[Rfam]
RNA: antisense RNA of dnaA mRNA
Organism: Candidatus Williamhamiltonella defendens
RNA sequence: CUUUGCUUUGGUUUUAUGCGCAAUAAUGCCAUUGCCUACAGCGUGCAAUAAAUGUGUUUUUCCAAGACCUGUGUCACCAUA
Numbered sequence: 001c002u003u004u005g006c007u008u009u010g011g012u013u014u015u016a017u018g019c020g021c022a023a024u025a026a027u028g029c030c031a032u033u034g035c036c037u038a039c040a041g042c043g044u045g046c047a048a049u050a051a052a053u054g055u056g057u058u059u060u061u062c063c064a065a066g067a068c069c070u071g072u073g074u075c076a077c078c079a080u081a
Base pairs, nucleotide, nucleotide: 004043005042006041007040009038010037011036013034016032017031018030020029021028053076054075056074057073062071